[Rfam]
RNA sequence: CUUACCAGAACACACAACGGAUCUGUGUCCAGCGAUCCUGAACACGACCACAGUGCCUCGUGCCUGUCUAGUGUUUCGGUUGAUUGCUGUGACAGUUCGACGACCAAAGGAGCCACUGUUCUCUUUCUAUGCGUGGUUGCUUUAUUUCCGGUCGACAGAUCUCAGAUCAAUUGUCUGCAUCAAGCUGUUCACUUCCGGUCUUGAGUUCCCUCCUUGCUUCCCCCUUCGGGGGGUUAGUCGGGCUGGUGAAUUCGACUGGAUGGGUUUGGUGUGUGACGGCGUCAUAUUCCUGAUCCCUUCGCCGAUGGCCAUUGGCUGGUGAAGCUAGGGAAAAACCAUGACUGGCCUACAUAA
Numbered sequence: 001c002u003u004a005c006c007a008g009a010a011c012a013c014a015c016a017a018c019g020g021a022u023c024u025g026u027g028u029c030c031a032g033c034g035a036u037c038c039u040g041a042a043c044a045c046g047a048c049c050a051c052a053g054u055g056c057c058u059c060g061u062g063c064c065u066g067u068c069u070a071g072u073g074u075u076u077c078g079g080u081u082g083a084u085u086g087c088u089g090u091g092a093c094a095g096u097u098c099g100a101c102g103a104c105c106a107a108a109g110g111a112g113c114c115a116c117u118g119u120u121c122u123c124u125u126u127c128u129a130u131g132c133g134u135g136g137u138u139g140c141u142u143u144a145u146u147u148c149c150g151g152u153c154g155a156c157a158g159a160u161c162u163c164a165g166a167u168c169a170a171u172u173g174u175c176u177g178c179a180u181c182a183a184g185c186u187g188u189u190c191a192c193u194u195c196c197g198g199u200c201u202u203g204a205g206u207u208c209c210c211u212c213c214u215u216g217c218u219u220c221c222c223c224c225u226u227c228g229g230g231g232g233g234u235u236a237g238u239c240g241g242g243c244u245g246g247u248g249a250a251u252u253c254g255a256c257u258g259g260a261u262g263g264g265u266u267u268g269g270u271g272u273g274u275g276a277c278g279g280c281g282u283c284a285u286a287u288u289c290c291u292g293a294u295c296c297c298u299u300c301g302c303c304g305a306u307g308g309c310c311a312u313u314g315g316c317u318g319g320u321g322a323a324g325c326u327a328g329g330g331a332a333a334a335a336c337c338a339u340g341a342c343u344g345g346c347c348u349a350c351a352u353a354a
Base pairs, nucleotide, nucleotide: 019162020161021160022159023158024157025156026155027093028092029091030089031088032087034085035084036083037082038079039078040077041076042075043073044072045071046064048062050061051060053058101154102153103152104151105150108143109142110141112137113136114135115134116133174273176271180269181268182267183266184265185264197257198256199255200254203253204252205251206250207249208248209246210245278347279346280345281342282341283340284339285338294331295330296329297328298327301325302324307317308316309315310314
Shown here is a 354-nucleotide sequence from Monascus purpureus, a member of the family "A. fumigatus sRNA Afu_309". The match comes from Rfam's covariance-model search (208 bits). The literature on the family includes a 2008 paper in Nucleic Acids Res by Jochl et al., "Small ncRNA transcriptome analysis from Aspergillus fumigatus suggests a novel mechanism for regulation of protein synthesis". The family's RNA type in Rfam is small RNA.